Rfam assigns this 256-nucleotide sequence to the family "Streptomyces sRNA 4677". The pairing is the family consensus, mapped onto this sequence. The family's RNA type in Rfam is small RNA. It scores 164 bits against the family's covariance model.
RNA sequence: UGCUCCGGUACCGCAGGCGCCUUUCCCCAAGGAACGUGAGACGGAGAAAAAGCACCCCACCAAACCCCACCAGGCCCCGCCACCGCCGACUCACUCCGGCGAGUGAACAUCACCGGCUCGGCUGGCUUUCCGGCCCCCCAAUGGCCCUACUCUCAGCCCCAGCAGCCGAGCAACAACACCAGACAUGCGACGGCCCCCGCCGGGACGGCAAUCCCGAGGCGAGGGCCUGACCACCGAGGAAGAAAGCACCUUCCCG
Dot-bracket structure: ......(((......((((..........................................................)))).........((((((....))))))..............(((((...........................)))))..................................(((((.(((.((((......))))...))).))))).....)))..(((((.......)))))..